[Rfam]
RNA sequence: AGGCUGCAGCAAGAUCAGACGAGAGAAGUUAACUGGCCGGUCGUUGUUUGAGAUCUAAUCGGAUCUCCGUCGACGAAUCUGCUUACCGAACUUCUUACAUUU
Numbered sequence: 001a002g003g004c005u006g007c008a009g010c011a012a013g014a015u016c017a018g019a020c021g022a023g024a025g026a027a028g029u030u031a032a033c034u035g036g037c038c039g040g041u042c043g044u045u046g047u048u049u050g051a052g053a054u055c056u057a058a059u060c061g062g063a064u065c066u067c068c069g070u071c072g073a074c075g076a077a078u079c080u081g082c083u084u085a086c087c088g089a090a091c092u093u094c095u096u097a098c099a100u101u102u
Stems, first nucleotide, its partner, number of pairs: 023096008035083003039079003043074004
Rfam assigns this 102-nucleotide RNA from Momordica charantia to the family "Small nucleolar RNA snoR109". It is annotated as an H/ACA-box small nucleolar RNA. A reference for the family is Marker et al. (2002), "Experimental RNomics: identification of 140 candidates for small non-messenger RNAs in the plant Arabidopsis thaliana", Curr Biol. The family's consensus secondary structure was predicted with WAR. Rfam 15.1 lists 680 matches to the family in 220 species. The organism belongs to Momordica, within Eukaryota.